Overview:
Rfam assigns this 112-nucleotide RNA from Aotus nancymaae to the family "Small nucleolar RNA SNORD89". The family's RNA type in Rfam is C/D-box small nucleolar RNA. Taxonomically the source falls in Aotus (Eukaryota, Dipnotetrapodomorpha, Theria, Simiiformes). Rfam's curators write: snoRNA HBII-289 belongs to the family of C/D snoRNAs. It is the human orthologue of the mouse MBII-289 and has no identified RNA target.
[Rfam]
RNA sequence: CCUGAGGAAUGAUGACAAGAAAAGGCCGAAUUGCAGUGUCUCUAUCAGCAGUUUGCUCUCUGGGCACACAAUGACAAAAUAUCCUGAAGCGAACCAAUAGUCUGACCUCAGU
Number, nucleotide and partner (000 for none) at each position: 001c000002c111003u110004g109005a108006g107007g106008a000009a000010u000011g000012a000013u000014g102015a101016c100017a000018a000019g000020a000021a000022a000023a000024g000025g034026c033027c000028g000029a000030a000031u000032u000033g026034c025035a098036g000037u096038g095039u000040c000041u092042c091043u089044a000045u087046c086047a085048g084049c000050a000051g069052u068053u000054u066055g065056c064057u063058c062059u000060c000061u000062g058063g057064g056065c055066a054067c000068a052069c051070a000071a082072u000073g080074a000075c000076a000077a000078a000079a000080u073081a000082u071083c000084c048085u047086g046087a045088a000089g043090c000091g042092a041093a000094c000095c038096a037097a000098u035099a000100g016101u015102c014103u000104g000105a000106c007107c006108u005109c004110a003111g002112u000